[Rfam]
RNA sequence: CGGCGAAGCUUCCAGUCCGUUAUCCAGGGUGGCACUCGAUCAUGCUGUGGGGAUAACCGGACCGGUACCCUUAGACGCCUGUCGUCGAUAGCAUGGUGUGAGGACGGGUUAGAUGCCCA
Dot-bracket structure: [[[....(((.((...]]]........)).))).((((((((((((..((((...(((.....))).))))..((((.....))))...)))))))).))))...((((.....)))).
RNA: epsC RNA
Organism: Peribacillus cavernae